The record is a 109-nucleotide sequence from Corynebacterium imitans, which matches "mraW RNA" in Rfam. NCBI's taxonomy places the organism under Bacteria, Bacillati, Actinomycetota, Corynebacteriaceae, Corynebacterium.
[Rfam]
RNA sequence: UGACGGAGAGCGUGUACGGACUCUGUCUGGGGCGUGGAGCGUUCUGGUGUACUUCCCCGACAUCAGAACAGCCGCCCCGGGCAGGGCUCUAUGCGCUCCCCUUGUGUGA
Numbered sequence: 001u002g003a004c005g006g007a008g009a010g011c012g013u014g015u016a017c018g019g020a021c022u023c024u025g026u027c028u029g030g031g032g033c034g035u036g037g038a039g040c041g042u043u044c045u046g047g048u049g050u051a052c053u054u055c056c057c058c059g060a061c062a063u064c065a066g067a068a069c070a071g072c073c074g075c076c077c078c079g080g081g082c083a084g085g086g087c088u089c090u091a092u093g094c095g096c097u098c099c100c101c102u103u104g105u106g107u108g109a
Stems, first nucleotide, its partner, number of pairs: 010096007018089002021086014041069010